Rfam assigns this 341-nucleotide RNA sequence from Turnix velox to the family "Nuclear RNase P". The family's RNA type in Rfam is ribozyme. On this family, see Frank and Pace, Annu Rev Biochem 1998: "Ribonuclease P: unity and diversity in a tRNA processing ribozyme". The organism belongs to Turnix, within Eukaryota.
RNA sequence: UCCGGGGGAAGCUCACCACCGAGGCCACGCACUGGGUGUUCGUCACCCGCGCCCCGCCUCGGGGAAGGUCUGAGGCAAGGGCCGCCCGCGGCUCUAGCAGAGCUCCGCCCACGCCGGGCGGGUGAGCCACCAGCAAGGGGGGGCGCCGCGAUAACACUUAAAGGGCCGGUCCAUGGGCAGGAGAAGCCGAUGCAGGUUCCCCGUGGGUUUCCCGCGGAAGGGAUCCCGGCGGAUGCUCGUGGCCCCGCGGUGCUUUGAGACAGACUCACGGCCGGCGAUUGAGUCCAAUGGGUGAGGUGGGGCAUGGCCCUACAACCCAAUUCAGACUACUCUCCUCCGGA
Numbered sequence: 001u002c003c004g005g006g007g008g009a010a011g012c013u014c015a016c017c018a019c020c021g022a023g024g025c026c027a028c029g030c031a032c033u034g035g036g037u038g039u040u041c042g043u044c045a046c047c048c049g050c051g052c053c054c055c056g057c058c059u060c061g062g063g064g065a066a067g068g069u070c071u072g073a074g075g076c077a078a079g080g081g082c083c084g085c086c087c088g089c090g091g092c093u094c095u096a097g098c099a100g101a102g103c104u105c106c107g108c109c110c111a112c113g114c115c116g117g118g119c120g121g122g123u124g125a126g127c128c129a130c131c132a133g134c135a136a137g138g139g140g141g142g143g144c145g146c147c148g149c150g151a152u153a154a155c156a157c158u159u160a161a162a163g164g165g166c167c168g169g170u171c172c173a174u175g176g177g178c179a180g181g182a183g184a185a186g187c188c189g190a191u192g193c194a195g196g197u198u199c200c201c202c203g204u205g206g207g208u209u210u211c212c213c214g215c216g217g218a219a220g221g222g223a224u225c226c227c228g229g230c231g232g233a234u235g236c237u238c239g240u241g242g243c244c245c246c247g248c249g250g251u252g253c254u255u256u257g258a259g260a261c262a263g264a265c266u267c268a269c270g271g272c273c274g275g276c277g278a279u280u281g282a283g284u285c286c287a288a289u290g291g292g293u294g295a296g297g298u299g300g301g302g303c304a305u306g307g308c309c310c311u312a313c314a315a316c317c318c319a320a321u322u323c324a325g326a327c328u329a330c331u332c333u334c335c336u337c338c339g340g341a
Base pairs, nucleotide, nucleotide: 001341002340003339004338007335008334009333012296013295014294015293016292017291020061021060022059023058024057034048035047036046037045038044070325071324072323073322074321080273081272082271083270090104091103092102093101094100105121106120107119108118109117110116122269123268124267125266126265128263142254143253144252145251146250147249148248149247150246297313298312299311300310301309302308303307